Rfam assigns this 67-nucleotide RNA sequence from Pipistrellus kuhlii to the family "mir-9256 microRNA precursor family".
[Rfam]
RNA sequence: AUAUACACUGGGUGAUCAGAUUAUUAUGAUCUCUGAACACAUAAUAAUCUGGUCACUCAGUGUACUU
Numbered sequence: 001a002u003a004u005a006c007a008c009u010g011g012g013u014g015a016u017c018a019g020a021u022u023a024u025u026a027u028g029a030u031c032u033c034u035g036a037a038c039a040c041a042u043a044a045u046a047a048u049c050u051g052g053u054c055a056c057u058c059a060g061u062g063u064a065c066u067u
Stems, first nucleotide, its partner, number of pairs: 004064014019049010